[Rfam]
RNA sequence: UGGCGGCACACGACUGGCGAGGGUGGGCAACCACCGGGGAGUGGAGUCGCGUGCAUCGUCCGCCUGGGUGCGCGCC
Numbered sequence: 001u002g003g004c005g006g007c008a009c010a011c012g013a014c015u016g017g018c019g020a021g022g023g024u025g026g027g028c029a030a031c032c033a034c035c036g037g038g039g040a041g042u043g044g045a046g047u048c049g050c051g052u053g054c055a056u057c058g059u060c061c062g063c064c065u066g067g068g069u070g071c072g073c074g075c076c
Stems, first nucleotide, its partner, number of pairs: 003050005009043003014038002016064004023034004053071005

The record is a 76-nucleotide RNA from Flexivirga aerilata, which matches "ZMP/ZTP riboswitch aptamer (pfl RNA motif)" in Rfam.
A search with the family's covariance model found it, with a score of 43 bits.
Gene Ontology terms of the family: regulation of purine nucleotide biosynthetic process and one-carbon metabolic process.